Shown here is a 152-nucleotide RNA sequence from Tribolium castaneum, a member of the family "U12 minor spliceosomal RNA". Clan: U2 clan. The base pairs follow the family's consensus structure. The family has 62 seed sequences and 2,106 matches in Rfam 15.1.
[Rfam]
RNA sequence: GUGCCUUAAACUAAUGAGUAAGGAAAAUAAACGAGCCUUGGUAACGCUUGGCUUACAUGCUAGGCUUCCUAGCCUCGAAUUUUUGUAAGGGCAAAGGUCGUCCCGUGGACAGUGCCUACUUUUGCAACGGUCCUGGUGAAGCGAUCUGCCCU
Numbered sequence: 001g002u003g004c005c006u007u008a009a010a011c012u013a014a015u016g017a018g019u020a021a022g023g024a025a026a027a028u029a030a031a032c033g034a035g036c037c038u039u040g041g042u043a044a045c046g047c048u049u050g051g052c053u054u055a056c057a058u059g060c061u062a063g064g065c066u067u068c069c070u071a072g073c074c075u076c077g078a079a080u081u082u083u084u085g086u087a088a089g090g091g092c093a094a095a096g097g098u099c100g101u102c103c104c105g106u107g108g109a110c111a112g113u114g115c116c117u118a119c120u121u122u123u124g125c126a127a128c129g130g131u132c133c134u135g136g137u138g139a140a141g142c143g144a145u146c147u148g149c150c151c152u
Stems, first nucleotide, its partner, number of pairs: 004023005033054005040047001059073004088152005095147007103136002107133004112128001113126003